[Rfam]
Background
Rfam assigns this 76-nucleotide RNA from Ameiurus melas to the family "mir-7563 microRNA precursor family". A search with the family's covariance model found it, with a score of 82 bits. NCBI's taxonomy places the organism under Eukaryota, Deuterostomia, Craniata, Ictaluridae, Ameiurus. The family has 3 seed sequences and 362 matches in Rfam 15.1.

RNA sequence: ACCGCGUACUUACCUACGAUAUGGUAGUCAAAAUAAAUGUAUCUGGCCUACUAUAUAGUAGGUAAGUACGUGGUUU
Numbered sequence: 001a002c003c004g005c006g007u008a009c010u011u012a013c014c015u016a017c018g019a020u021a022u023g024g025u026a027g028u029c030a031a032a033a034u035a036a037a038u039g040u041a042u043c044u045g046g047c048c049u050a051c052u053a054u055a056u057a058g059u060a061g062g063u064a065a066g067u068a069c070g071u072g073g074u075u076u
Base pairs, nucleotide, nucleotide: 001074002073003072004071005070006069007068008067009066010065011064012063013062014061015060017058019056020055021054022053023052024051025050026049027048029046031044033042034041035040